[Rfam]
RNA: Fluoride riboswitch aptamer (crcB RNA motif)
Organism: Agrobacterium albertimagni
RNA sequence: GUUUUGUACGGUAAUGGAUUCUGCCGGGCAUCAAGCCAAACCGCUUCCCCGAUGAAGCUGAUGACUCCUACUCAGCG
Dot-bracket structure: .........((((..[[[.[[)))).................((((........))))....]].]]].........